[Rfam]
Rfam assigns this 125-nucleotide RNA sequence from Leptonychotes weddellii to the family "Small nucleolar RNA SNORA40". Its family is annotated with nucleolus and RNA processing in the Gene Ontology. Rfam's curators write: The snoRNA ACA 40 belongs to the H/ACA family of snoRNAs and guides the pseudouridylation of 28S rRNA subunit at position U4565. NB This family has a high threshold value to exclude a large number of closely related sequences that do not appear to have conserved H and ACA boxes, and may be pseudogenes.
RNA sequence: UGCACUUGCUUUUGGUUUUGUUUAGCUCACAGACAAAGACUUAGACAAGUGCGAAAAAACAAAUCCGCUUGCAACCCAGAACUCAUUGUUCAAUGGGAAUUUUGAUACAGGUGAGAAGGAACAUG
Dot-bracket structure: ((((((((..(..(.((((((...........)))))).)..)..))))))))..........(((.((((.....(((((.((.(........).)).))))).......))))..))).....